[Rfam]
Rfam assigns this 131-nucleotide sequence from Salarias fasciatus to the family "Small nucleolar RNA SNORA63". NCBI's taxonomy places the organism under Eukaryota, Actinopteri, Clupeocephala, Ovalentaria, Salarias. About the family: E3 belongs to the H/ACA class of snoRNAs and is involved in the processing of eukaryotic pre-rRNA and has regions of complementarity to 18S rRNA. E3 is encoded in introns in the gene for protein synthesis initiation factor 4AII. The base pairs follow the family's consensus structure, which was predicted with PFOLD. It scores 96 bits against the family's covariance model. Its family is annotated with nucleolus and RNA processing in the Gene Ontology.

RNA sequence: AUGCAGGAUUAGUUACAAUACAGCUUGUGCAGUACUGUGUUGUCGUUCCCCCUGCAAACAGCAAAGUGUUUCCUCGCUAUCCCUGUCUAUCAACUUCCCUUUGACUGACAGGGACGUAAGGUUUCAUACAC
Numbered sequence: 001a002u003g004c005a006g007g008a009u010u011a012g013u014u015a016c017a018a019u020a021c022a023g024c025u026u027g028u029g030c031a032g033u034a035c036u037g038u039g040u041u042g043u044c045g046u047u048c049c050c051c052c053u054g055c056a057a058a059c060a061g062c063a064a065a066g067u068g069u070u071u072c073c074u075c076g077c078u079a080u081c082c083c084u085g086u087c088u089a090u091c092a093a094c095u096u097c098c099c100u101u102u103g104a105c106u107g108a109c110a111g112g113g114a115c116g117u118a119a120g121g122u123u124u125c126a127u128a129c130a131c
Stems, first nucleotide, its partner, number of pairs: 003055005015043009025034001082112004087107001090104001